[Rfam]
Bacterial large subunit ribosomal RNA: a 228-nucleotide part of an RNA from Parahoeflea phototrophica. The base pairs follow the family's consensus structure, which is taken from published work. For this family Rfam cites "Crystal structure of the ribosome at 5.5 A resolution" (Yusupov et al., Science, 2001).
RNA sequence: GACUUAGUGCAGCAAGCAAGCUUAAGCCGAUAGGUGUAGGCGCAGCGAAAGCGAGUCUUAAUAGGGCGAUUAGUUUGUUGCAUUAGACCCGAAACCGAGUGAUCUAGCCAUGAGCAGGUUGAAGGUUGGGUAACACCAACUGGAGGACCGAACCCGCAUCUGUUGCAAUAGAUUGGGAUGACUUGUGGUUAGGGGUGAAAGGCCAAUCAAACUCGGAGAUAGCUGGUU
Numbered sequence: 001g002a003c004u005u006a007g008u009g010c011a012g013c014a015a016g017c018a019a020g021c022u023u024a025a026g027c028c029g030a031u032a033g034g035u036g037u038a039g040g041c042g043c044a045g046c047g048a049a050a051g052c053g054a055g056u057c058u059u060a061a062u063a064g065g066g067c068g069a070u071u072a073g074u075u076u077g078u079u080g081c082a083u084u085a086g087a088c089c090c091g092a093a094a095c096c097g098a099g100u101g102a103u104c105u106a107g108c109c110a111u112g113a114g115c116a117g118g119u120u121g122a123a124g125g126u127u128g129g130g131u132a133a134c135a136c137c138a139a140c141u142g143g144a145g146g147a148c149c150g151a152a153c154c155c156g157c158a159u160c161u162g163u164u165g166c167a168a169u170a171g172a173u174u175g176g177g178a179u180g181a182c183u184u185g186u187g188g189u190u191a192g193g194g195g196u197g198a199a200a201g202g203c204c205a206a207u208c209a210a211a212c213u214c215g216g217a218g219a220u221a222g223c224u225g226g227u228u
Stems, first nucleotide, its partner, number of pairs: 005085013020041004026035003045052002055067004088226002091223001095216006104192011115180001117149004124141006153177003158173004194204003